Nucleotides: 281
Stems, first nucleotide, its partner, number of pairs: 005137008014128004020044003025039005048055002063087005071078002089120002091117003094113003100107002140279002143276001147269006156245011167233001169201004176193007205230004210226002213224002247257002
Number, partner (000 for none) and nucleotide at each position: 001000g002000a003000g004000u005137c006136u007135a008134a009133c010132a011131u012130g013000c014128u015127u016126g017125c018000g019000a020044g021043u022042g023000u024000u025039u026038g027037g028036g029035u030000g031000u032000u033000a034000a035029a036028c037027c038026c039025g040000g041000a042022c043021g044020c045000g046000u047000a048055a049054u050000g051000a052000a053000a054049g055048u056000g057000a058000a059000u060000g061000u062000a063087g064086g065085u066084g067083g068000g069000a070000u071078c072077c073000g074000c075000a076000a077072g078071g079000u080000g081000c082000a083067c084066c085065a086064u087063c088000g089120a090119c091117c092116g093115a094113u095112c096111u097000g098000g099000a100107u101106u102000u103000u104000c105000u106101a107100a108000g109000a110000u111096g112095g113094a114000u115093u116092u117091g118000a119090g120089u121000a122000a123000g124000a125017g126016c127015a128014a129000u130012u131011a132010u133009g134008u135007u136006g137005g138000g139000a140279c141278c142000c143276g144000a145000a146000a147269g148268a149267u150266g151265g152264u153000g154000a155000a156245c157244u158243a159242u160241g161240c162239c163238u164237g165236a166235a167233u168000a169201g170200g171199g172198u173000g174000a175000a176193g177192c178191c179190a180189g181188a182187g183000g184000a185000a186000a187182c188181u189180c190179u191178g192177g193176u194000g195000g196000a197000g198172g199171c200170u201169c202000g203000u204000a205230g206229c207228g208227g209000u210226u211225c212000u213224g214223a215000c216000g217000u218000g219000c220000a221000a222000a223214u224213c225211g226210a227208u228207c229206g230205u231000c232000a233167a234000a235166u236165u237164u238163g239162g240161g241160u242159a243158u244157a245156g246000g247257g248256g249000c250000g251000a252000a253000a254000g255000a256248c257247u258000a259000a260000u261000c262000g263000a264152a265151c266150c267149a268148u269147c270000u271000a272000g273000u274000a275000g276143c277000u278141g279140g280000u281000u